RNA sequence: GGGACACUCUUAUGGGCAAGACUUGCUUCAGUGGGACUUUGGUGCUCAAUGAGUCUCCCCCUGAGUGUGUCUCU
Numbered sequence: 001g002g003g004a005c006a007c008u009c010u011u012a013u014g015g016g017c018a019a020g021a022c023u024u025g026c027u028u029c030a031g032u033g034g035g036a037c038u039u040u041g042g043u044g045c046u047c048a049a050u051g052a053g054u055c056u057c058c059c060c061c062u063g064a065g066u067g068u069g070u071c072u073c074u
Stems, first nucleotide, its partner, number of pairs: 001073007009065004014060003018056001020055003028052003032048004036043002
Source information
This 74-nucleotide RNA from Cnephaeus nilssonii belongs to the Rfam family "mir-9229 microRNA precursor family". Taxonomically the source falls in Cnephaeus (Eukaryota, Sarcopterygii, Amniota, Mammalia). It scores 76 bits against the family's covariance model. The base pairs follow the family's consensus structure, which was predicted with RNAalifold.